[Rfam]
RNA sequence: AGAACAGGCCUUUCAGGCAUCCUCUCCUAAAACUUUCCAAGGCCGCCCUUUUUGAGGCGGCCCUUUUUUUUGCCUCC
Numbered sequence: 001a002g003a004a005c006a007g008g009c010c011u012u013u014c015a016g017g018c019a020u021c022c023u024c025u026c027c028u029a030a031a032a033c034u035u036u037c038c039a040a041g042g043c044c045g046c047c048c049u050u051u052u053u054g055a056g057g058c059g060g061c062c063c064u065u066u067u068u069u070u071u072g073c074c075u076c077c
Stems, first nucleotide, its partner, number of pairs: 008018004041062007049054001
The record is a 77-nucleotide RNA from Sphingomonas sp. WG, which matches "Makes More Granules Regulator RNA (mmgR)" in Rfam. By type it is a small RNA. The pairing is the family consensus, mapped onto this sequence.